[Rfam]
RNA sequence: UCCUGUUCUAUUCUCCGAGCCUGCGAUUCUAUCGGCAAUGAAUGCUAUGAUGACCAGGUCUAAGGGUUCAUUGGGAAACGAAUGAGCCUUCCAUUGUGAAAAGGAGAUGCUUGAGGUUAGGC
Numbered sequence: 001u002c003c004u005g006u007u008c009u010a011u012u013c014u015c016c017g018a019g020c021c022u023g024c025g026a027u028u029c030u031a032u033c034g035g036c037a038a039u040g041a042a043u044g045c046u047a048u049g050a051u052g053a054c055c056a057g058g059u060c061u062a063a064g065g066g067u068u069c070a071u072u073g074g075g076a077a078a079c080g081a082a083u084g085a086g087c088c089u090u091c092c093a094u095u096g097u098g099a100a101a102a103g104g105a106g107a108u109g110c111u112u113g114a115g116g117u118u119a120g121g122c
Stems, first nucleotide, its partner, number of pairs: 003116002006113001012107005019059005028050002034046004064089009074079001090099002